[Rfam]
RNA sequence: UAAUCAGCCGGGUAUACGUCAGUUGCAAACGCCGGAGAUAUCACUCUGACUA
Numbered sequence: 001u002a003a004u005c006a007g008c009c010g011g012g013u014a015u016a017c018g019u020c021a022g023u024u025g026c027a028a029a030c031g032c033c034g035g036a037g038a039u040a041u042c043a044c045u046c047u048g049a050c051u052a
Base pairs, nucleotide, nucleotide: 001040002039004037008035009034011033012030013029018050019049020048021047022046
RNA: Exoribonuclease-resistant RNA (xrRNA) plant-infecting virus (class 3)
Organism: Polerovirus CPLRV